[Rfam]
Record summary
A member of the RNA family "SAM/SAH riboswitch aptamer" from Roseovarius albus, 51 nucleotides long. The literature on the family includes a 2019 paper in Nucleic Acids Res by Weickhmann et al., "The structure of the SAM/SAH-binding riboswitch".
RNA sequence: UCCCCGUCACAACGGCUUCCUGACGUGACGGCAGUCAUUUUUAGUGGAGCG
Numbered sequence: 001u002c003c004c005c006g007u008c009a010c011a012a013c014g015g016c017u018u019c020c021u022g023a024c025g026u027g028a029c030g031g032c033a034g035u036c037a038u039u040u041u042u043a044g045u046g047g048a049g050c051g
Stems, first nucleotide, its partner, number of pairs: 004031007013022002015050003019047002